[Rfam]
RNA sequence: ACUCCCUCAUACCAUACAGAUUUGUGCCCUCUUGUCCCGGCCUACCUCCGGGUAGUGACACGGUUUGACGACUGGGCAGUUCGACAGCCAUGGAAACCUCCCGAUCCUCGCAUCAUAUCCGGUGGAGUACGUCCAGUCGACAGAUCUGAGAAAGAGUCGGCGGGAGUUCGUCUGUCGCAUUUUGAGUUCCUCUGCGGAUUCGGUGCGAUGGGCUCUUCCGCUGGGCGCUAUAUUCCGAAUCGUUCUCCCAGGCCGUCGGUCGUUGAGGGGAGGGACAAACCAUAGCUUGCCUACAUCC
Numbered sequence: 001a002c003u004c005c006c007u008c009a010u011a012c013c014a015u016a017c018a019g020a021u022u023u024g025u026g027c028c029c030u031c032u033u034g035u036c037c038c039g040g041c042c043u044a045c046c047u048c049c050g051g052g053u054a055g056u057g058a059c060a061c062g063g064u065u066u067g068a069c070g071a072c073u074g075g076g077c078a079g080u081u082c083g084a085c086a087g088c089c090a091u092g093g094a095a096a097c098c099u100c101c102c103g104a105u106c107c108u109c110g111c112a113u114c115a116u117a118u119c120c121g122g123u124g125g126a127g128u129a130c131g132u133c134c135a136g137u138c139g140a141c142a143g144a145u146c147u148g149a150g151a152a153a154g155a156g157u158c159g160g161c162g163g164g165a166g167u168u169c170g171u172c173u174g175u176c177g178c179a180u181u182u183u184g185a186g187u188u189c190c191u192c193u194g195c196g197g198a199u200u201c202g203g204u205g206c207g208a209u210g211g212g213c214u215c216u217u218c219c220g221c222u223g224g225g226c227g228c229u230a231u232a233u234u235c236c237g238a239a240u241c242g243u244u245c246u247c248c249c250a251g252g253c254c255g256u257c258g259g260u261c262g263u264u265g266a267g268g269g270g271a272g273g274g275a276c277a278a279a280c281c282a283u284a285g286c287u288u289g290c291c292u293a294c295a296u297c298c
Stems, first nucleotide, its partner, number of pairs: 018147008026077004033070004037063003040059001041057001043054004085139001087137002092120003096116001159219002165214003178205004184201006190194001224291003227286005240275002243272002247269003251261004